[Rfam]
RNA sequence: GGUCAUGAGUGUCAGCGACAAGCCCUGGCUUGCUGACCGGCAACCCUCCUACGCGGCGGGGUGCUCCAAGUGACGACCAGGCGGGGCCCGUCCGGGCUCCGCAAGCGCGAGGC
Numbered sequence: 001g002g003u004c005a006u007g008a009g010u011g012u013c014a015g016c017g018a019c020a021a022g023c024c025c026u027g028g029c030u031u032g033c034u035g036a037c038c039g040g041c042a043a044c045c046c047u048c049c050u051a052c053g054c055g056g057c058g059g060g061g062u063g064c065u066c067c068a069a070g071u072g073a074c075g076a077c078c079a080g081g082c083g084g085g086g087c088c089c090g091u092c093c094g095g096g097c098u099c100c101g102c103a104a105g106c107g108c109g110a111g112g113c
Stems, first nucleotide, its partner, number of pairs: 001078004009038001011037006021030002039065003044061003048056002081102009
Background
A member of the RNA family "SAM (S-adenosyl methionine) riboswitch aptamer" from Streptomyces sp. A0642, 113 nucleotides long. The match comes from Rfam's covariance-model search (112 bits). Pairs were carried over by alignment from the consensus structure, which is taken from published work. Clan: SAM clan.